Potassium channel RNA editing signal: a 119-nucleotide RNA from Haemonchus placei. Rfam links the family to the GO term adenosine to inosine editing. The organism belongs to Haemonchus, within Eukaryota. Rfam describes the family as follows. This family represents a group of sequences related to the human potassium channel Kv1.1 hairpin element which directs the efficient modification of an adenosine to inosine by an adenosine deaminase acting on RNA (ADAR). It scores 61 bits against the family's covariance model. Rfam classes the family as a cis-regulatory element.
RNA sequence: CUUGGUUAUGGUGAUAUGGUACCGUCAACGGUUAUGGGUAAAAUUGUUGGUGGGAUCUGUUCACUAUCUGGUGUGUUGGUGAUCGCGUUACCGGUUCCGGUGAGCUACUUAUUACCAAA
Numbered sequence: 001c002u003u004g005g006u007u008a009u010g011g012u013g014a015u016a017u018g019g020u021a022c023c024g025u026c027a028a029c030g031g032u033u034a035u036g037g038g039u040a041a042a043a044u045u046g047u048u049g050g051u052g053g054g055a056u057c058u059g060u061u062c063a064c065u066a067u068c069u070g071g072u073g074u075g076u077u078g079g080u081g082a083u084c085g086c087g088u089u090a091c092c093g094g095u096u097c098c099g100g101u102g103a104g105c106u107a108c109u110u111a112u113u114a115c116c117a118a119a
Base pairs, nucleotide, nucleotide: 002118004116005115008112009111010110011109014101015100018097019096021095022094037077038076039075040074050062